[Rfam]
RNA: Burkholderia RNA 11
RNA sequence: GCAACCUGAAGCUCGCGCACGAGAACAUCGUGGUGUUCCGCUCGCUGCUCGGCAUCUCGUGGAUGUGGUUCUUCGGCGCCGUGUUCCUGAGCCUGUUCCCCGCGUUCGCCAAGGACGUGCUG
Numbered sequence: 001g002c003a004a005c006c007u008g009a010a011g012c013u014c015g016c017g018c019a020c021g022a023g024a025a026c027a028u029c030g031u032g033g034u035g036u037u038c039c040g041c042u043c044g045c046u047g048c049u050c051g052g053c054a055u056c057u058c059g060u061g062g063a064u065g066u067g068g069u070u071c072u073u074c075g076g077c078g079c080c081g082u083g084u085u086c087c088u089g090a091g092c093c094u095g096u097u098c099c100c101c102g103c104g105u106u107c108g109c110c111a112a113g114g115a116c117g118u119g120c121u122g
Base pairs, nucleotide, nucleotide: 010049011048012047014044015043017041018040021037022036024034026032051121052120053119054118055117057115058114060112062110063105064104065103067099068098071095077089078088081086